[Rfam]
RNA sequence: CCUGUCUACGCAGGUCGGGAUGUGACCCCCGCGGGCGGUUCCGCGGGGGUUGAACCACGCA
Numbered sequence: 001c002c003u004g005u006c007u008a009c010g011c012a013g014g015u016c017g018g019g020a021u022g023u024g025a026c027c028c029c030c031g032c033g034g035g036c037g038g039u040u041c042c043g044c045g046g047g048g049g050u051u052g053a054a055c056c057a058c059g060c061a
Stems, first nucleotide, its partner, number of pairs: 001014005017056002024051011
The family of this 61-nucleotide sequence is "eL15-Euryarchaeota ribosomal protein leader". On this family, see Eckert and Weinberg, BMC Microbiol 2020: "Discovery of 20 novel ribosomal leader candidates in bacteria and archaea".